[Rfam]
RNA sequence: GUCGAGAGGGCGGCUAAUAUAAUACCCGCAAGGGAAAUACGCCCAGCCUGCUUAUGGGGGCUUUCGAACCUCUUGACCGCCCAAU
Numbered sequence: 001g002u003c004g005a006g007a008g009g010g011c012g013g014c015u016a017a018u019a020u021a022a023u024a025c026c027c028g029c030a031a032g033g034g035a036a037a038u039a040c041g042c043c044c045a046g047c048c049u050g051c052u053u054a055u056g057g058g059g060g061c062u063u064u065c066g067a068a069c070c071u072c073u074u075g076a077c078c079g080c081c082c083a084a085u
Stems, first nucleotide, its partner, number of pairs: 001077009012043003015039002025034003045062005

The record is an 85-nucleotide sequence from Vitreoscilla sp. C1, which matches "sRNA-Xcc1" in Rfam. On this family, see Schmidtke et al., Nucleic Acids Res 2011: "Genome-wide transcriptome analysis of the plant pathogen Xanthomonas identifies sRNAs with putative virulence functions". The match comes from Rfam's covariance-model search (68 bits). The family's RNA type in Rfam is small RNA. The family has 74 seed sequences and 421 matches in Rfam 15.1. The family's consensus secondary structure was predicted with RNAalifold.